[Rfam]
RNA: MIR391 microRNA precursor family
Nucleotides: 096
Base pairs, nucleotide, nucleotide: 001096002095003094005092007090008088009087010086013083015081016080017079019077020076022074023073024072025071026070027069028068029067030066031065033063034062036060037059038058039057040056041055
Number, partner (000 for none) and nucleotide at each position: 001096g002095c003094a004000a005092a006000c007090a008088a009087a010086g011000a012000u013083u014000c015081g016080c017079u018000u019077c020076g021000c022074a023073g024072g025071a026070g027069a028068g029067a030066u031065a032000g033063c034062g035000c036060c037059a038058u039057c040056g041055c042000c043000u044000a045000a046000g047000u048000u049000u050000a051000a052000c053000u054000a055041g056040c057039g058038g059037u060036g061000a062034c063033g064000g065031u066030a067029u068028c069027u070026c071025u072024c073023c074022u075000a076020c077019g078000u079017a080016g081015c082000a083013a084000u085000c086010c087009u088008u089000a090007u091000a092005u093000a094003u095002g096001c